[Rfam]
RNA sequence: UAAUUUGUUCAAGGCAUGUUAUUAUCUAAUUAUGACAGAUUCAUAUCUAACUGCUCAGAAUCAUUCAUUAUCAUAAGUCCGACUACAUCAUUGACACUUAUAAAAUAUAAUUGGAAGAAAAGGUUCAUCAAAUUAUGAU
Numbered sequence: 001u002a003a004u005u006u007g008u009u010c011a012a013g014g015c016a017u018g019u020u021a022u023u024a025u026c027u028a029a030u031u032a033u034g035a036c037a038g039a040u041u042c043a044u045a046u047c048u049a050a051c052u053g054c055u056c057a058g059a060a061u062c063a064u065u066c067a068u069u070a071u072c073a074u075a076a077g078u079c080c081g082a083c084u085a086c087a088u089c090a091u092u093g094a095c096a097c098u099u100a101u102a103a104a105a106u107a108u109a110a111u112u113g114g115a116a117g118a119a120a121a122g123g124u125u126c127a128u129c130a131a132a133u134u135a136u137g138a139u
Stems, first nucleotide, its partner, number of pairs: 004137001006135002008132002012128001014126001019121001023118001025116001027113005